[Rfam]
RNA sequence: UUGGUUUAAAUCACUGUCGGUCUACACUUUGUAAACCGAACCCACACAAAGUGGUGGGACAUACAUUGAUUUCAUCCAA
Numbered sequence: 001u002u003g004g005u006u007u008a009a010a011u012c013a014c015u016g017u018c019g020g021u022c023u024a025c026a027c028u029u030u031g032u033a034a035a036c037c038g039a040a041c042c043c044a045c046a047c048a049a050a051g052u053g054g055u056g057g058g059a060c061a062u063a064c065a066u067u068g069a070u071u072u073c074a075u076c077c078a079a
Stems, first nucleotide, its partner, number of pairs: 001079004006074001008072006015065003022057003025053007
RNA: MIR5269 microRNA precursor family